[Rfam]
RNA sequence: CUUCACCGAGCCGAGCAGCAGCGGCUGGUCGCGGCGCUGGCCGUACGCGGCCAGCAGGGCGUCGGCCUC
Numbered sequence: 001c002u003u004c005a006c007c008g009a010g011c012c013g014a015g016c017a018g019c020a021g022c023g024g025c026u027g028g029u030c031g032c033g034g035c036g037c038u039g040g041c042c043g044u045a046c047g048c049g050g051c052c053a054g055c056a057g058g059g060c061g062u063c064g065g066c067c068u069c
Stems, first nucleotide, its partner, number of pairs: 014026003032064002035059001037054003041050003
Shown here is a 69-nucleotide RNA from Actinokineospora bangkokensis, a member of the family "ASpks TB sRNA". Pairs were carried over by alignment from the consensus structure, which is taken from published work. The source organism's lineage runs through Bacteria, Actinomycetota, Actinomycetes, Pseudonocardiales and Actinokineospora. It is annotated as an antisense RNA.